[Rfam]
Nucleotides: 099
Stems, first nucleotide, its partner, number of pairs: 001099001003097006039068002044063001046061004
Number, partner (000 for none) and nucleotide at each position: 001099g002000a003097g004096a005095g006094u007093g008092c009000g010000g011000u012000g013000a014000u015000g016000a017000u018000g019000c020000u021000a022000u023000u024000u025000u026000g027000u028000g029000g030000a031000c032000u033000a034000g035000a036000g037000u038000u039068u040067c041000u042000g043000a044063u045000c046061u047060g048059g049058g050000u051000u052000u053000a054000a055000c056000a057000c058049c059048c060047u061046a062000a063044a064000u065000c066000u067040g068039a069000u070000u071000g072000a073000c074000a075000a076000a077000c078000c079000c080000u081000u082000g083000g084000c085000u086000g087000u088000c089000u090000g091000a092008g093007c094006a095005c096004u097003u098000a099001u
A member of the RNA family "Small nucleolar RNA Z157/R69/R10" from Carpinus fangiana, 99 nucleotides long. NCBI's taxonomy places the organism under Eukaryota, Viridiplantae, Embryophyta, Gunneridae, Carpinus.